[Rfam]
Nucleotides: 142
Stems, first nucleotide, its partner, number of pairs: 020035005044076005053064004077090004094132002097129004108117003
Number, partner (000 for none) and nucleotide at each position: 001000g002000u003000c004000u005000u006000a007000g008000g009000g010000a011000u012000a013000g014000c015000g016000c017000c018000a019000g020035a021034c022033u023032u024031u025000u026000a027000u028000u029000a030000u031024a032023a033022a034021g035020u036000g037000a038000c039000g040000a041000g042000g043000a044076c045075u046074g047073g048072g049000u050000u051000g052000a053064u054063c055062g056061a057000u058000u059000u060000u061056u062055c063054g064053g065000c066000g067000g068000g069000u070000g071000a072048c073047u074046c075045a076044g077090g078089g079088g080087c081000u082000a083000u084000a085000c086000g087080g088079u089078c090077c091000a092000a093000a094132g095131u096000g097129a098128u099127g100126u101000a102000a103000c104000a105000a106000a107000c108117u109116a110115a111000g112000c113000a114000a115110u116109u117108a118000g119000u120000g121000a122000a123000a124000a125000a126100g127099c128098a129097u130000g131095a132094c133000a134000u135000g136000u137000a138000u139000g140000u141000a142000g